[Rfam]
RNA sequence: GGCCGCCUGAGGGGAAGGUACCCCUAGUACGAGAGGAACAGGGUACCGGGGCCUCUAGUUUACCGGUUGUCCGGCCAGGGCAGUGCCGGGCAGCCACGCCUCGAGGGGUAAUCGCUGAAAGCAUCUAAGCGAGAACCCCUCCCCAAAAAGAGGCGGCCGUGCAGGUGGCCGAAAGGCUGCCUGCGGGAGCCCACUCCUAGAAGAGGAGGUUGAUGGGGUGGGGGUGUAAGUCCCGAGGGCGAAAGCCCGAGGGAUUCAGCCCGCCACUCCCAAUAGGGCGAG
Numbered sequence: 001g002g003c004c005g006c007c008u009g010a011g012g013g014g015a016a017g018g019u020a021c022c023c024c025u026a027g028u029a030c031g032a033g034a035g036g037a038a039c040a041g042g043g044u045a046c047c048g049g050g051g052c053c054u055c056u057a058g059u060u061u062a063c064c065g066g067u068u069g070u071c072c073g074g075c076c077a078g079g080g081c082a083g084u085g086c087c088g089g090g091c092a093g094c095c096a097c098g099c100c101u102c103g104a105g106g107g108g109u110a111a112u113c114g115c116u117g118a119a120a121g122c123a124u125c126u127a128a129g130c131g132a133g134a135a136c137c138c139c140u141c142c143c144c145a146a147a148a149a150g151a152g153g154c155g156g157c158c159g160u161g162c163a164g165g166u167g168g169c170c171g172a173a174a175g176g177c178u179g180c181c182u183g184c185g186g187g188a189g190c191c192c193a194c195u196c197c198u199a200g201a202a203g204a205g206g207a208g209g210u211u212g213a214u215g216g217g218g219u220g221g222g223g224g225u226g227u228a229a230g231u232c233c234c235g236a237g238g239g240c241g242a243a244a245g246c247c248c249g250a251g252g253g254a255u256u257c258a259g260c261c262c263g264c265c266a267c268u269c270c271c272a273a274u275a276g277g278g279c280g281a282g
Stems, first nucleotide, its partner, number of pairs: 001158008011144004017047007048102005056096001058094001063089005068082005105139003112132005189279004194208004214272003217268005222262003230255005237248003
RNA: Archaeal large subunit ribosomal RNA, nucleotides 2749 to 3030